[Rfam]
RNA sequence: GAGCUGUGAAGAAAUUGGCUUUAGCGAUGGUUGGGUCCUUCGCACACAUCUGAUUCCAGAUGAUAUAUGCCUCACGUCUGAGCUC
Numbered sequence: 001g002a003g004c005u006g007u008g009a010a011g012a013a014a015u016u017g018g019c020u021u022u023a024g025c026g027a028u029g030g031u032u033g034g035g036u037c038c039u040u041c042g043c044a045c046a047c048a049u050c051u052g053a054u055u056c057c058a059g060a061u062g063a064u065a066u067a068u069g070c071c072u073c074a075c076g077u078c079u080g081a082g083c084u085c
Stems, first nucleotide, its partner, number of pairs: 001085004
Dot-bracket structure: ((((.............................................................................))))
RNA: small nucleolar RNA snoR114